[Rfam]
RNA sequence: ACGCCGGGACGACCCGACGUUUUCCAACUCUUCGGUAGGGACGACCCAC
Numbered sequence: 001a002c003g004c005c006g007g008g009a010c011g012a013c014c015c016g017a018c019g020u021u022u023u024c025c026a027a028c029u030c031u032u033c034g035g036u037a038g039g040g041a042c043g044a045c046c047c048a049c
Stems, first nucleotide, its partner, number of pairs: 001020003005016004038047003
Guanidine-II riboswitch aptamer (mini-ykkC): a 49-nucleotide RNA from Gemmata sp. SH-PL17.
The base pairs follow the family's consensus structure, which is taken from published work.
A reference for the family is Huang et al. (2017), "The Structure of the Guanidine-II Riboswitch", Cell Chem Biol.
Simpler in structure and has fewer highly conserved nucleotide positions than the ykkC-yxkD leader. Despite this each of its two stem-loop structures directly bind free guanidine. Therefore, mini-ykkC RNA motif represents a distinct class of guanidine-sensing RNAs. Its crystal structure was also determined.